[Rfam]
RNA sequence: UUAUAAGCAAUGAUUAAGAAAUAGUAAAAGAUGAAAUCUUUACAGAGAGGAAACGGUGGUGAAAGUUUCUAAGAAGAAGUCUUUGAACCAGUCUUUUAGCUUAAAAACGGUAAAAAGUUUUUACGGUAGGGACCGUUAUAUCCCAUAAAGAGAGUCUUUGGGCUAAUUAGAGUGGUACCGCGGAAAUUAAACCUUUCGUCUCUAUA
Numbered sequence: 001u002u003a004u005a006a007g008c009a010a011u012g013a014u015u016a017a018g019a020a021a022u023a024g025u026a027a028a029a030g031a032u033g034a035a036a037u038c039u040u041u042a043c044a045g046a047g048a049g050g051a052a053a054c055g056g057u058g059g060u061g062a063a064a065g066u067u068u069c070u071a072a073g074a075a076g077a078a079g080u081c082u083u084u085g086a087a088c089c090a091g092u093c094u095u096u097u098a099g100c101u102u103a104a105a106a107a108c109g110g111u112a113a114a115a116a117g118u119u120u121u122u123a124c125g126g127u128a129g130g131g132a133c134c135g136u137u138a139u140a141u142c143c144c145a146u147a148a149a150g151a152g153a154g155u156c157u158u159u160g161g162g163c164u165a166a167u168u169a170g171a172g173u174g175g176u177a178c179c180g181c182g183g184a185a186a187u188u189a190a191a192c193c194u195u196u197c198g199u200c201u202c203u204a205u206a
Base pairs, nucleotide, nucleotide: 007100008099016095017094018093019092027084028083029082030081031080032079038073039072040071049070050069051068052067053066054065103122104121105120106119107118108117124135125134126133153164154163155162156161169203170202171201172200180199181198182197183196184195
RNA: T-box leader
Organism: Romboutsia ilealis